[Rfam]
The record is a 134-nucleotide RNA sequence, which matches "Small nucleolar RNA SNORA71" in Rfam. The family's RNA type in Rfam is H/ACA-box small nucleolar RNA. It is one of the family's seed sequences. The members of this family belong to the H/ACA class of snoRNAs which bind a number of proteins (including dyskerin, Gar1p and Nop10p) to form snoRNP complexes. This class of snoRNAs are thought to guide the sites of modification of uridines to pseudouridines by forming direct base pairing interactions with substrate RNAs. For this family Rfam cites "The family of box ACA small nucleolar RNAs is defined by an evolutionarily conserved secondary structure and ubiquitous sequence elements essential for RNA accumulation" (Ganot et al., Genes Dev, 1997). The family has 40 seed sequences and 1,805 matches in Rfam 15.1.
RNA sequence: CCCUGCAUUCGAAAGUGAUCAUGAGCUGCCCGUGCCCUGGUCAUUGGUAGUGCAGGGAGAGGAACUGCCGAGAGCACUUCCCCGUGUUUGGAGGGUCCACUCCUGUCUCUUCCAAACCCUGGAGCUUUCCCACA
Numbered sequence: 001c002c003c004u005g006c007a008u009u010c011g012a013a014a015g016u017g018a019u020c021a022u023g024a025g026c027u028g029c030c031c032g033u034g035c036c037c038u039g040g041u042c043a044u045u046g047g048u049a050g051u052g053c054a055g056g057g058a059g060a061g062g063a064a065c066u067g068c069c070g071a072g073a074g075c076a077c078u079u080c081c082c083c084g085u086g087u088u089u090g091g092a093g094g095g096u097c098c099a100c101u102c103c104u105g106u107c108u109c110u111u112c113c114a115a116a117c118c119c120u121g122g123a124g125c126u127u128u129c130c131c132a133c134a
Stems, first nucleotide, its partner, number of pairs: 001057009014045008023037001025035002067131001070129006086117005091111005